Source information:
The record is a 76-nucleotide sequence from Proteiniclasticum aestuarii, which matches "S10-Clostridia ribosomal protein leader" in Rfam. The base pairs follow the family's consensus structure, which is taken from published work.
RNA sequence: GAACAGCAAUGAUUCAAGAGGUUGCUGGACUAUACAGGUAAUUCUUGAUGAGCAUGUCAGGUCACGAACCCGACGA
Numbered sequence: 001g002a003a004c005a006g007c008a009a010u011g012a013u014u015c016a017a018g019a020g021g022u023u024g025c026u027g028g029a030c031u032a033u034a035c036a037g038g039u040a041a042u043u044c045u046u047g048a049u050g051a052g053c054a055u056g057u058c059a060g061g062u063c064a065c066g067a068a069c070c071c072g073a074c075g076a
Stems, first nucleotide, its partner, number of pairs: 014048003018044003025037003029033001057076002061074003